RNA sequence: GAUGCAAUGAUGAUUAAAUUGCACGGAGGUGCAUGAAGGGCAGUGGACAAAGCAAUAUCUAUUGUUUUGCCGUGAGCUCUCUUUAAAACGACUUCUCCUUCCACUGAGCAUA
Number, nucleotide and partner (000 for none) at each position: 001g000002a111003u110004g109005c108006a000007a000008u000009g000010a000011u000012g000013a000014u000015u000016a000017a000018a000019u000020u000021g000022c000023a000024c000025g000026g000027a000028g000029g000030u000031g000032c000033a000034u000035g000036a000037a000038g000039g000040g000041c000042a000043g000044u000045g000046g000047a000048c000049a000050a000051a000052g000053c000054a000055a000056u000057a000058u000059c000060u000061a000062u000063u000064g000065u000066u000067u000068u000069g000070c000071c000072g000073u000074g000075a000076g000077c000078u000079c000080u000081c000082u000083u000084u000085a000086a000087a000088a000089c000090g000091a000092c000093u000094u000095c000096u000097c000098c000099u000100u000101c000102c000103a000104c000105u000106g000107a000108g005109c004110a003111u002112a000
RNA: Small nucleolar RNA Z152/R70/R12/